Description:
The record is an 86-nucleotide RNA from Triticum turgidum, which matches "Small nucleolar RNA Z102/R77" in Rfam. Pairs were carried over by alignment from the consensus structure, which was predicted with PFOLD. The family's RNA type in Rfam is C/D-box small nucleolar RNA. The family is grouped with related families in Rfam's "SNORD44 clan". The match comes from Rfam's covariance-model search (50 bits).
[Rfam]
RNA sequence: AGAUGGGAUUAUGAAUGAGAUUAAUUUACCUAUUGCUUUGAUUGGCUGAUAUGAUGGCCCCAGUACUAAACAGAAUGCGAUCAUCC
Numbered sequence: 001a002g003a004u005g006g007g008a009u010u011a012u013g014a015a016u017g018a019g020a021u022u023a024a025u026u027u028a029c030c031u032a033u034u035g036c037u038u039u040g041a042u043u044g045g046c047u048g049a050u051a052u053g054a055u056g057g058c059c060c061c062a063g064u065a066c067u068a069a070a071c072a073g074a075a076u077g078c079g080a081u082c083a084u085c086c
Stems, first nucleotide, its partner, number of pairs: 002085004040061001044059004